[Rfam]
Nucleotides: 070
Stems, first nucleotide, its partner, number of pairs: 001070004
Number, partner (000 for none) and nucleotide at each position: 001070a002069a003068u004067g005000a006000a007000u008000g009000a010000u011000g012000a013000c014000a015000a016000c017000a018000u019000g020000u021000u022000u023000c024000g025000g026000u027000c028000c029000c030000a031000g032000a033000u034000g035000a036000u037000a038000u039000c040000a041000a042000a043000u044000g045000a046000u047000a048000u049000u050000a051000c052000u053000u054000u055000c056000c057000c058000a059000u060000u061000u062000u063000c064000u065000g066000a067004c068003a069002u070001u
Rfam assigns this 70-nucleotide RNA from Alligator mississippiensis to the family "Small nucleolar RNA SNORD73". On this family, see Rebane et al., Gene 1998: "A novel snoRNA (U73) is encoded within the introns of the human and mouse ribosomal protein S3a genes". Rfam links the family to the GO terms RNA processing and nucleolus. A search with the family's covariance model found it, with a score of 78 bits.